A member of the RNA family "MIR1428 microRNA precursor family" from Oryza glumipatula, 111 nucleotides long.
Pairs were carried over by alignment from the consensus structure, which was predicted with RNAalifold.
Lineage of the source: Eukaryota > Streptophytina > Spermatophyta > Poales > Oryza.
The literature on the family includes a 2008 paper in BMC Plant Biol by Sunkar et al., "Identification of novel and candidate miRNAs in rice by high throughput sequencing".
The match comes from Rfam's covariance-model search (107 bits).
[Rfam]
RNA sequence: GCGCUUAGCGAAUUCAUAGGCUCUAUCUUGUAGUAUGAACUGAGUACGGGAUGAUUUGCAGUGCGUAUUAGGGGCUUACCAUAAGAUAAUGGCCGUGAAUUCGCUAAGCGU
Numbered sequence: 001g002c003g004c005u006u007a008g009c010g011a012a013u014u015c016a017u018a019g020g021c022u023c024u025a026u027c028u029u030g031u032a033g034u035a036u037g038a039a040c041u042g043a044g045u046a047c048g049g050g051a052u053g054a055u056u057u058g059c060a061g062u063g064c065g066u067a068u069u070a071g072g073g074g075c076u077u078a079c080c081a082u083a084a085g086a087u088a089a090u091g092g093c094c095g096u097g098a099a100u101u102c103g104c105u106a107a108g109c110g111u
Stems, first nucleotide, its partner, number of pairs: 002110015019094003024088008033079003037075001040072002043069004048064001050062001